RNA sequence: CAGUUUCGCGCCGGCCUGUUCUCCUCCCAGGGCCGACGUGGAUCGGUCUGCGUUGAGUUCCUCCCAUAGUCGCAGGCCACACACGACGCCCGCCGGUUCCUCCCCCGGCGGGCGUUUUGC
Numbered sequence: 001c002a003g004u005u006u007c008g009c010g011c012c013g014g015c016c017u018g019u020u021c022u023c024c025u026c027c028c029a030g031g032g033c034c035g036a037c038g039u040g041g042a043u044c045g046g047u048c049u050g051c052g053u054u055g056a057g058u059u060c061c062u063c064c065c066a067u068a069g070u071c072g073c074a075g076g077c078c079a080c081a082c083a084c085g086a087c088g089c090c091c092g093c094c095g096g097u098u099c100c101u102c103c104c105c106c107g108g109c110g111g112g113c114g115u116u117u118u119g120c
Base pairs, nucleotide, nucleotide: 007040008039009038012035013034014033015032016031017030045078046077047076048075049074050073051072052071054069086115087114088113089112090111091110092109093108094107095106096105
RNA: Alphaproteobacterial ar14